A member of the RNA family "Bacterial small subunit ribosomal RNA" from Aminipila butyrica, 600 nucleotides of a longer RNA. NCBI's taxonomy places the organism under Bacteria, Bacillati, Bacillota, Anaerovoracaceae, Aminipila.
[Rfam]
Nucleotides: 600
Stems, first nucleotide, its partner, number of pairs: 001474002003471003007468007015458002019422005024316001026314008034305002040055004064300007077124002079121005088103005106115003127289002130287004136283002138278003141274001143272002148187006154163003166179004193266004198234007208223002212221002237257002240254005320374007332363003337356002342351003381412001386407007428450007477572001479569001482565002487559004492554003497549005505541004513534001515532004520526001574597010
Number, partner (000 for none) and nucleotide at each position: 001474u002473g003471a004470c005469g006000g007468g008467g009466a010465c011464c012463c013462g014000c015458a016457c017000a018000a019422g020421c021420a022419g023418c024316g025000g026314a027313g028312c029311a030310u031309g032308u033307g034305g035304u036000u037000u038000a039000a040055u041054u042053c043052g044000a045000a046000g047000c048000a049000a050000c051000g052043c053042g054041a055040a056000g057000a058000a059000c060000c061000u062000u063000a064300c065299c066298a067297g068296g069295a070294c071000u072000u073000g074000a075000c076000a077124u078123c079121c080120c081119u082118c083117u084000g085000a086000c087000a088103g089102u090101c091100c092099c093000u094000u095000a096000a097000c098000c099092g100091g101090g102089a103088u104000c105000u106115u107114c108113c109000u110000u111000c112000g113108g114107g115106a116000c117083a118082g119081a120080g121079g122000a123078g124077a125000c126000a127289g128288g129000u130287g131286g132285u133284g134000c135000a136283u137282g138278g139277u140276u141274g142000u143272c144271g145000u146000c147000a148187g149186c150185u151184c152183g153182u154163g155162u156161c157000g158000u159000g160000a161156g162155a163154u164000g165000u166179u167178g168177g169176g170000u171000u172000a173000a174000g175000u176169c177168c178167c179166g180000c181000a182153a183152c184151g185150a186149g187148c188000g189000c190000a191000a192000c193266c194265c195264u196263u197000g198234u199233c200232a201231a202230u203229a204228g205000u206000u207000g208223c209222c210000a211000g212221c213220a214000g215000u216000a217000a218000g219000a220213u221212g222209g223208g224000c225000a226000c227000u228204c229203u230202a231201u232200u233199g234198a235000g236000a237257c238256u239000g240254c241253c242252g243251u244250g245000g246000a247000u248000a249000a250244c251243a252242c253241g254240g255000a256238g257237g258000a259000a260000g261000g262000u263196g264195g265194g266193g267000a268000u269000g270000a271144c272143g273000u274141c275000a276140a277139a278138u279000c280000a281000u282137c283136a284133u285132g286131c287130c288128c289127c290000u291000u292000a293000u294070g295069u296068u297067c298066u299065g300064g301000g302000c303000u304035a305034c306000a307033c308032a309031c310030g311029u312028g313027c314026u315000a316024c317000a318000a319000u320374g321373g322372c323371u324370g325369g326368u327000a328000c329000a330000g331000a332363g333362a334361g335000a336000c337356g338355c339000a340000a341000g342351a343350c344349c345000g346000u347000g348000a349344g350343g351342u352000g353000g354000a355338g356337c357000a358000a359000a360000u361334c362333u363332c364000c365000a366000a367000a368326a369325c370324c371323a372322g373321u374320c375000c376000c377000a378000g379000u380000u381412c382000g383000g384000a385000u386407u387406g388405u389404a390403g391402g392401c393000u394000g395000c396000a397000a398000c399000u400000c401392g402391c403390c404389u405388a406387c407386a408000u409000g410000a411000a412381g413000u414000u415000g416000g417000a418023g419022u420021u421020g422019c423000u424000a425000g426000u427000a428450a429449u430448c431447g432446c433445a434444g435000a436000u437000c438000a439000g440000a441000a442000u443000g444434c445433u446432g447431c448430g449429g450428u451000g452000a453000a454000u455000g456000c457016g458015u459000u460000c461000c462013c463012g464011g465010g466009u467008c468007u469005u470004g471003u472000a473002c474001a475000c476000a477572c478000c479569g480000c481000c482565c483564g484000u485000c486000a487559c488558a489557c490556c491000a492554u493553g494552g495000a496000a497549g498548u499547u500546g501545g502000g503000g504000g505541u506540g507539c508538c509000c510000a511000a512000a513534g514000u515532c516531g517530g518529c519000c520526a521000g522000u523000a524000a525000a526520u527000a528000g529518g530517c531516u532515g533000c534513c535000u536000a537000a538508g539507g540506c541505a542000a543000a544000a545501u546500c547499a548498a549497u550000g551000a552494c553493u554492a555000g556490g557489g558488u559487g560000a561000a562000g563000u564483c565482g566000u567000a568000a569479c570000a571000a572477g573000g574597u575596a576595g577594c578593c579592g580591u581590a582589u583588c584000g585000g586000a587000a588583g589582g590581u591580g592579c593578g594577g595576c596575u597574g598000g599000a600000u